[Rfam]
RNA sequence: CUGUCUCUGCUGAUAGACCUUGAACAAUUUGCUGUUAUUCUUUUGGUUUGAACUAGAAUGCAAACAAAAAUACUCCCUUCUCUUUCUGUCUGUCUUUGUUGUGGCACAGAUUGAAUUAGGGAAUGAUUCU
Numbered sequence: 001c002u003g004u005c006u007c008u009g010c011u012g013a014u015a016g017a018c019c020u021u022g023a024a025c026a027a028u029u030u031g032c033u034g035u036u037a038u039u040c041u042u043u044u045g046g047u048u049u050g051a052a053c054u055a056g057a058a059u060g061c062a063a064a065c066a067a068a069a070a071u072a073c074u075c076c077c078u079u080c081u082c083u084u085u086c087u088g089u090c091u092g093u094c095u096u097u098g099u100u101g102u103g104g105c106a107c108a109g110a111u112u113g114a115a116u117u118a119g120g121g122a123a124u125g126a127u128u129c130u
Stems, first nucleotide, its partner, number of pairs: 002062003006058001008056001011052001014050006022040003026036003074122005082113001085110004090104004